[Rfam]
RNA sequence: CCCGCGACAGGACGGAAAGACCCCAUGGAGCUUUACUGCAGUUUGAUAUUGAGUGUUUGUGUGACAUGUACAGGAUAGGUAGGAGCCUAAGAGGUGGGGACGUCAGUUUCCAAGGAGGCGCUGGUGGGAUACUACCCUUGUGACAUGAACCCUCUAACCCGAGUCAUGAAGACGUGACUGGAGACAGUGUCAGAUGGGCAGUUUGACUGGGGCGGUCGCCUCCUAAAGAGUAACGGAGGCGCCCAAAGGUUCCCUCAGAAUGGUUGGAAAUCAUUCGAAGAGUGUAAAGGCAGAAGGGAGCUUGACUGCGAGACGGACAGGUCGAGCAGGGACGAAAGUCGGGCUUAGUGAUCCGGUGGUACCGUAUGGAAGGGCCAUCGCUCAACGGAUAAAAGCUACCCUGGGGAUAACAGGCUUAUCUCCCCCAAGAGUUCACAUCGACGGGGAGGUUUGGCACCUCGAUGUCGGCUCGUCGCAUCCUGGGGCUGAAGUCGGUCCCAAGGGUUGGGCUGUUCGCCCAUUAAAGCGGCACGCGAGCUGGGUUCAGAACGUCGUGAGACAGUUCGGUCCCUAUCCGUCGCGGGCGUA
Numbered sequence: 001c002c003c004g005c006g007a008c009a010g011g012a013c014g015g016a017a018a019g020a021c022c023c024c025a026u027g028g029a030g031c032u033u034u035a036c037u038g039c040a041g042u043u044u045g046a047u048a049u050u051g052a053g054u055g056u057u058u059g060u061g062u063g064a065c066a067u068g069u070a071c072a073g074g075a076u077a078g079g080u081a082g083g084a085g086c087c088u089a090a091g092a093g094g095u096g097g098g099g100a101c102g103u104c105a106g107u108u109u110c111c112a113a114g115g116a117g118g119c120g121c122u123g124g125u126g127g128g129a130u131a132c133u134a135c136c137c138u139u140g141u142g143a144c145a146u147g148a149a150c151c152c153u154c155u156a157a158c159c160c161g162a163g164u165c166a167u168g169a170a171g172a173c174g175u176g177a178c179u180g181g182a183g184a185c186a187g188u189g190u191c192a193g194a195u196g197g198g199c200a201g202u203u204u205g206a207c208u209g210g211g212g213c214g215g216u217c218g219c220c221u222c223c224u225a226a227a228g229a230g231u232a233a234c235g236g237a238g239g240c241g242c243c244c245a246a247a248g249g250u251u252c253c254c255u256c257a258g259a260a261u262g263g264u265u266g267g268a269a270a271u272c273a274u275u276c277g278a279a280g281a282g283u284g285u286a287a288a289g290g291c292a293g294a295a296g297g298g299a300g301c302u303u304g305a306c307u308g309c310g311a312g313a314c315g316g317a318c319a320g321g322u323c324g325a326g327c328a329g330g331g332a333c334g335a336a337a338g339u340c341g342g343g344c345u346u347a348g349u350g351a352u353c354c355g356g357u358g359g360u361a362c363c364g365u366a367u368g369g370a371a372g373g374g375c376c377a378u379c380g381c382u383c384a385a386c387g388g389a390u391a392a393a394a395g396c397u398a399c400c401c402u403g404g405g406g407a408u409a410a411c412a413g414g415c416u417u418a419u420c421u422c423c424c425c426c427a428a429g430a431g432u433u434c435a436c437a438u439c440g441a442c443g444g445g446g447a448g449g450u451u452u453g454g455c456a457c458c459u460c461g462a463u464g465u466c467g468g469c470u471c472g473u474c475g476c477a478u479c480c481u482g483g484g485g486c487u488g489a490a491g492u493c494g495g496u497c498c499c500a501a502g503g504g505u506u507g508g509g510c511u512g513u514u515c516g517c518c519c520a521u522u523a524a525a526g527c528g529g530c531a532c533g534c535g536a537g538c539u540g541g542g543u544u545c546a547g548a549a550c551g552u553c554g555u556g557a558g559a560c561a562g563u564u565c566g567g568u569c570c571c572u573a574u575c576c577g578u579c580g581c582g583g584g585c586g587u588a
Base pairs, nucleotide, nucleotide: 001584002583003582004581005580006579007578008577010576011575012574014571015570022405023404024403025402027401028400029397030396031395032394033393035202036201037200038199042194043193044192045191046190047189048188051154052153053152055150056149057148058147059146060145061144062143064141065140066139068137078136079135080134081133082132085119086118087117095112096111097110098109099108100107101106159181160180162179163178164177165176166175167174205217206216207215208214218240219239220238221237222236223235241386243343244342249301250300251299252298253297254296255281256280258276259275260274261273262272263271282291283290306329307328308327309326312323313322314321331340332339333338354380355379356378357377358376359375360374362373363372414455415454416453418452419449420448421447422446423445424444425443429439430438466541467539468538469537470536471533472530473529474528475527476526479504480503482499483498484497485496486495487494506520507519508518509517510516547565548564549563550562551560552559553558
RNA: Bacterial large subunit ribosomal RNA, nucleotides 2063 to 2650
Organism: Granulicatella sp. zg-ZJ